[Rfam]
RNA sequence: AUGCCUUAAACUAAUGAGUAAGGAAAAUAACGAGCCGGGGUGACGCCUGGUUCCUCACUACUCAUGUGAGAAGAACUUUUGCACGGGUACAGGUCGCCCCUCGAAGGACCCACUUACUUACGUGGGACCUCUAGGUGCAGUGAUCUGCCCG
Numbered sequence: 001a002u003g004c005c006u007u008a009a010a011c012u013a014a015u016g017a018g019u020a021a022g023g024a025a026a027a028u029a030a031c032g033a034g035c036c037g038g039g040g041u042g043a044c045g046c047c048u049g050g051u052u053c054c055u056c057a058c059u060a061c062u063c064a065u066g067u068g069a070g071a072a073g074a075a076c077u078u079u080u081g082c083a084c085g086g087g088u089a090c091a092g093g094u095c096g097c098c099c100c101u102c103g104a105a106g107g108a109c110c111c112a113c114u115u116a117c118u119u120a121c122g123u124g125g126g127a128c129c130u131c132u133a134g135g136u137g138c139a140g141u142g143a144u145c146u147g148c149c150c151g
Stems, first nucleotide, its partner, number of pairs: 004023005032053008054070005084151005091146007100135002103132001105130003109126005

Rfam assigns this 151-nucleotide RNA from Leptobrachium leishanense to the family "U12 minor spliceosomal RNA".
A search with the family's covariance model found it, with a score of 134 bits.
Its family is annotated with pre-mRNA branch point binding, U12 snRNP and mRNA branch site recognition in the Gene Ontology.
Rfam classes the family as a spliceosomal small nuclear RNA.
A reference for the family is Tarn and Steitz (1997), "Pre-mRNA splicing: the discovery of a new spliceosome doubles the challenge", Trends Biochem Sci.